Annotation:
A member of the RNA family "Small nucleolar RNA SNORA3/SNORA45 family" from Galemys pyrenaicus, 131 nucleotides long. The base pairs follow the family's consensus structure, which was predicted with RNAalifold. Rfam's curators write: The members of this family belong to the H/ACA class of snoRNAs which are thought to guide the sites of modification of uridines to pseudouridines. This family includes mouse snoMBI-28 and human homologues ACA3 (SNORA3) and ACA3-2 (SNORA45). Both ACA3 and ACA3-2 share the same host gene. MBI-28, ACA3 and ACA3-2 are all predicted to guide the pseudouridylation of residues in 28S rRNA. The source organism's lineage runs through Eukaryota, Opisthokonta, Bilateria, Boreoeutheria and Galemys. Its family is annotated with RNA processing and nucleolus in the Gene Ontology.
[Rfam]
RNA sequence: CUCGAGACUAGAGUCACAUCCUGACAAAUCUCUUGUCCUGGUGUGCUAGAGUUCUCGGAGAGAAUCUUCUGGUCUUGAUUCACUGGCAAGGGCAAUCAGUGCCCCUGUCAGUGCCCAGGUCAGAAACAUGC
Numbered sequence: 001c002u003c004g005a006g007a008c009u010a011g012a013g014u015c016a017c018a019u020c021c022u023g024a025c026a027a028a029u030c031u032c033u034u035g036u037c038c039u040g041g042u043g044u045g046c047u048a049g050a051g052u053u054c055u056c057g058g059a060g061a062g063a064a065u066c067u068u069c070u071g072g073u074c075u076u077g078a079u080u081c082a083c084u085g086g087c088a089a090g091g092g093c094a095a096u097c098a099g100u101g102c103c104c105c106u107g108u109c110a111g112u113g114c115c116c117a118g119g120u121c122a123g124a125a126a127c128a129u130g131c
Base pairs, nucleotide, nucleotide: 002058003057004056005055006054007052008051009050012047013046015045016044017043018042019041020040023037024036025035026034069123070122071121072120073119074118075117077115081113082112083111084110085109086108088106090104091103092102093101